[Rfam]
The family of this 99-nucleotide RNA sequence from Leuconostoc carnosum is "azaaromatic riboswitch aptamer (yjdF RNA)".
RNA sequence: AUUCACAGAAGAAAAAACACACUCCGGUAGGUAGUCCGGAUGUAGAUUAUAUCUAUCAGUAACCGGCCUCCAUGGUUGUCCAUCUUCUGAACUAUUUUA
Numbered sequence: 001a002u003u004c005a006c007a008g009a010a011g012a013a014a015a016a017a018c019a020c021a022c023u024c025c026g027g028u029a030g031g032u033a034g035u036c037c038g039g040a041u042g043u044a045g046a047u048u049a050u051a052u053c054u055a056u057c058a059g060u061a062a063c064c065g066g067c068c069u070c071c072a073u074g075g076u077u078g079u080c081c082a083u084c085u086u087c088u089g090a091a092c093u094a095u096u097u098u099a
Stems, first nucleotide, its partner, number of pairs: 006089006023040005042056006066076003